[Rfam]
RNA sequence: AUAGUUACCUGGCAGGGGAGAUAUCAUGAUCCCAAAGGUGGUUUUCCUUGAGUGAGGCUUAUCUUACCUAUUUUACUGCAGAAAUGCUGACCCCUGUGGUUUCCCCAAAUGUAGGAAACUCAACUGCAUAAUUUGUGGUAGGAGACUGUAUUUGUGCCCUCUCUGG
Numbered sequence: 001a002u003a004g005u006u007a008c009c010u011g012g013c014a015g016g017g018g019a020g021a022u023a024u025c026a027u028g029a030u031c032c033c034a035a036a037g038g039u040g041g042u043u044u045u046c047c048u049u050g051a052g053u054g055a056g057g058c059u060u061a062u063c064u065u066a067c068c069u070a071u072u073u074u075a076c077u078g079c080a081g082a083a084a085u086g087c088u089g090a091c092c093c094c095u096g097u098g099g100u101u102u103c104c105c106c107a108a109a110u111g112u113a114g115g116a117a118a119c120u121c122a123a124c125u126g127c128a129u130a131a132u133u134u135g136u137g138g139u140a141g142g143a144g145a146c147u148g149u150a151u152u153u154g155u156g157c158c159c160u161c162u163c164u165g166g
Stems, first nucleotide, its partner, number of pairs: 012127004016048006023042005050094001052092001054091001056088003060084001062082003097122003100118003104114001142163004148157003
RNA: U1 spliceosomal RNA
Organism: Macaca mulatta